A member of the RNA family "Group II catalytic intron D1-D4-6" from Lichenifustis flavocetrariae, 221 nucleotides long. Group II introns are found in rRNA, tRNA and mRNA of organelles in fungi, plants and protists, and also in mRNA in bacteria. A search with the family's covariance model found it, with a score of 181 bits. Rfam 15.1 lists 1,617 matches to the family in 661 species.

RNA sequence: CAAGUCCGACACGAUGAAGGCGUAGCGACCCACAUCGGCCCCGAGCCGUGCAUCGUCAUUCGCGAGGAUGGCGGUGAAGCGUCGGCAGGGGUGCACACAGGCCAGCCAUUGAGCCGCGAAAGCCAGAUAUCCCGGACGCCGACGUCGUUAAUUAGGCGGAAGGCCAUACAGCGGGGCGCGUCAGCGCGAGCGCCUCACCGGUCCGGCGUGGUCGAAGACCC
Numbered sequence: 001c002a003a004g005u006c007c008g009a010c011a012c013g014a015u016g017a018a019g020g021c022g023u024a025g026c027g028a029c030c031c032a033c034a035u036c037g038g039c040c041c042c043g044a045g046c047c048g049u050g051c052a053u054c055g056u057c058a059u060u061c062g063c064g065a066g067g068a069u070g071g072c073g074g075u076g077a078a079g080c081g082u083c084g085g086c087a088g089g090g091g092u093g094c095a096c097a098c099a100g101g102c103c104a105g106c107c108a109u110u111g112a113g114c115c116g117c118g119a120a121a122g123c124c125a126g127a128u129a130u131c132c133c134g135g136a137c138g139c140c141g142a143c144g145u146c147g148u149u150a151a152u153u154a155g156g157c158g159g160a161a162g163g164c165c166a167u168a169c170a171g172c173g174g175g176g177c178g179c180g181u182c183a184g185c186g187c188g189a190g191c192g193c194c195u196c197a198c199c200g201g202u203c204c205g206g207c208g209u210g211g212u213c214g215a216a217g218a219c220c221c
Stems, first nucleotide, its partner, number of pairs: 012037005019031002023189001025187002039091004045086004049081002051076011110215001111213001113212006132206006138164003143158004169200001171198001173196007